[Rfam]
RNA sequence: UUCUUAUUGGAUGAUGAUUGUCAUGUGUCAUGUUUUGAUUGGUAAACAUUAAAGUAUUUCAUCUUUCAUGGAGUUAAUAUCCAAUCAGAACAUAACACAUGAGAGUCAUCAUUC
Numbered sequence: 001u002u003c004u005u006a007u008u009g010g011a012u013g014a015u016g017a018u019u020g021u022c023a024u025g026u027g028u029c030a031u032g033u034u035u036u037g038a039u040u041g042g043u044a045a046a047c048a049u050u051a052a053a054g055u056a057u058u059u060c061a062u063c064u065u066u067c068a069u070g071g072a073g074u075u076a077a078u079a080u081c082c083a084a085u086c087a088g089a090a091c092a093u094a095a096c097a098c099a100u101g102a103g104a105g106u107c108a109u110c111a112u113u114c
Base pairs, nucleotide, nucleotide: 021102022101023100025098026097030093031092033090034089035088036087038085039084040083041082042081
RNA: MIR1520 microRNA precursor family